[Rfam]
RNA sequence: UUUUACGACAAUUUCAUAGUUCGUAUAACCUCGAUAAUUUGGUUCGGGGGCUCUACUGGGAACCUAAAUCCUAACUACGAACACAAUAUAUGCGUAU
Numbered sequence: 001u002u003u004u005a006c007g008a009c010a011a012u013u014u015c016a017u018a019g020u021u022c023g024u025a026u027a028a029c030c031u032c033g034a035u036a037a038u039u040u041g042g043u044u045c046g047g048g049g050g051c052u053c054u055a056c057u058g059g060g061a062a063c064c065u066a067a068a069u070c071c072u073a074a075c076u077a078c079g080a081a082c083a084c085a086a087u088a089u090a091u092g093c094g095u096a097u
Base pairs, nucleotide, nucleotide: 019082020081021080022079023078024077025076029049030048031047032046033045034044057073058072059071060070061069
This 97-nucleotide sequence from Paenibacillus pectinilyticus belongs to the Rfam family "Purine riboswitch aptamer". The source organism's lineage runs through Bacteria, Bacillota, Bacilli, Caryophanales and Paenibacillus. Rfam 15.1 lists 4,097 matches to the family in 1,411 species. Rfam's curators write: Riboswitches are metabolite binding domains within certain messenger RNAs that serve as precision sensors for their corresponding targets. The family's consensus secondary structure is taken from published work.